Source information: Rfam assigns this 76-nucleotide RNA sequence from Oryzias latipes to the family "mir-1 microRNA precursor family". The literature on the family includes a 2001 paper in Science by Lee and Ambros, "An extensive class of small RNAs in Caenorhabditis elegans".
RNA sequence: CUUGUGAGGACAUGCUUCCUUAUAUCCCCAUAUUAAUACACCACUUAUGGAAUGUAAGGAAGUGUGUGGUUUCAAG
Numbered sequence: 001c002u003u004g005u006g007a008g009g010a011c012a013u014g015c016u017u018c019c020u021u022a023u024a025u026c027c028c029c030a031u032a033u034u035a036a037u038a039c040a041c042c043a044c045u046u047a048u049g050g051a052a053u054g055u056a057a058g059g060a061a062g063u064g065u066g067u068g069g070u071u072u073c074a075a076g
Base pairs, nucleotide, nucleotide: 007070010067011066012065013064014063015062016061017060018059019058020057021056022055023054024053025052028050029049030048031047032046
NCBI's taxonomy places the organism under Eukaryota, Teleostomi, Neoteleostei, Acanthomorphata, Oryzias.